[Rfam]
RNA sequence: CGUGAAACGACUAGCGUUCUUCUUCGCAUUCUUUUUUACCUUCCCCUGAACGGGAGGCGAUUCGUCGUGUGAUAAAGAAUGCGAAGACGAACAACAAGGCCUCCCAAACGGGAGGCCUUUUUUAU
Numbered sequence: 001c002g003u004g005a006a007a008c009g010a011c012u013a014g015c016g017u018u019c020u021u022c023u024u025c026g027c028a029u030u031c032u033u034u035u036u037u038a039c040c041u042u043c044c045c046c047u048g049a050a051c052g053g054g055a056g057g058c059g060a061u062u063c064g065u066c067g068u069g070u071g072a073u074a075a076a077g078a079a080u081g082c083g084a085a086g087a088c089g090a091a092c093a094a095c096a097a098g099g100c101c102u103c104c105c106a107a108a109c110g111g112g113a114g115g116c117c118u119u120u121u122u123u124a125u
Stems, first nucleotide, its partner, number of pairs: 016092004021087014036072004042055004056066004096119010